RNA sequence: GGAUGAGGUAGAGGUCGCGAUGUUGAAGAGUACGUCGGAGGAAGUCCAGCAGAGACUGUCGAUUCCGAUGGAAAGGCGCCAUCGCCGAAGCCGCACGGUUUGCUGACCGCGCCGGCUGGGGUCGUUCCCGAUAAGGGGCGGAACUGUCAUGCUGUUGAUCGAAGAACAGUAUGUUGUGCUAUCUUGAUC
Numbered sequence: 001g002g003a004u005g006a007g008g009u010a011g012a013g014g015u016c017g018c019g020a021u022g023u024u025g026a027a028g029a030g031u032a033c034g035u036c037g038g039a040g041g042a043a044g045u046c047c048a049g050c051a052g053a054g055a056c057u058g059u060c061g062a063u064u065c066c067g068a069u070g071g072a073a074a075g076g077c078g079c080c081a082u083c084g085c086c087g088a089a090g091c092c093g094c095a096c097g098g099u100u101u102g103c104u105g106a107c108c109g110c111g112c113c114g115g116c117u118g119g120g121g122u123c124g125u126u127c128c129c130g131a132u133a134a135g136g137g138g139c140g141g142a143a144c145u146g147u148c149a150u151g152c153u154g155u156u157g158a159u160c161g162a163a164g165a166a167c168a169g170u171a172u173g174u175u176g177u178g179c180u181a182u183c184u185u186g187a188u189c
Base pairs, nucleotide, nucleotide: 006184007183008182009181010180011179017085018084019083020082021081022080024078025077033070034069035068036067037066038065039064040063089117090116091115092114093112094111096109097108098107099106100105118145119144122141123140124139125138126137127136128135148173149172150171151170152169153168154167155166156165
RNA: Lysine riboswitch aptamer
Organism: Paenibacillus lycopersici